Annotation:
Rfam assigns this 48-nucleotide RNA sequence from Streptomyces ipomoeae to the family "raiA-hairpin RNA". Taxonomically the source falls in Streptomyces ipomoeae (Bacteria, Bacillati, Actinomycetota, Streptomycetaceae). It is annotated as a small RNA.

RNA sequence: CACCGAGUCCGCGGUUCCGGGAACAACCGGAACCUGGUGCACAAGGGA
Numbered sequence: 001c002a003c004c005g006a007g008u009c010c011g012c013g014g015u016u017c018c019g020g021g022a023a024c025a026a027c028c029g030g031a032a033c034c035u036g037g038u039g040c041a042c043a044a045g046g047g048a
Stems, first nucleotide, its partner, number of pairs: 013034008